RNA sequence: ACCCUCCGGUUUCCCUUUCCCAUCGGAUCUUGACGCUGGUCUUGGUGGUCGUUAAGGAGGAAGAGCACCCUGAAGCUGGCCUCACAGCGAUGCAGUCUGCUGUAGAGCAGCAGGCCAGACUCAGACAUGC
Numbered sequence: 001a002c003c004c005u006c007c008g009g010u011u012u013c014c015c016u017u018u019c020c021c022a023u024c025g026g027a028u029c030u031u032g033a034c035g036c037u038g039g040u041c042u043u044g045g046u047g048g049u050c051g052u053u054a055a056g057g058a059g060g061a062a063g064a065g066c067a068c069c070c071u072g073a074a075g076c077u078g079g080c081c082u083c084a085c086a087g088c089g090a091u092g093c094a095g096u097c098u099g100c101u102g103u104a105g106a107g108c109a110g111c112a113g114g115c116c117a118g119a120c121u122c123a124g125a126c127a128u129g130c
Base pairs, nucleotide, nucleotide: 003060004059005058006057007056020048021047022046023045024044026041027040028039029038076118077117078116079115080114081113082112091109092108093107
RNA: Small nucleolar RNA SNORA61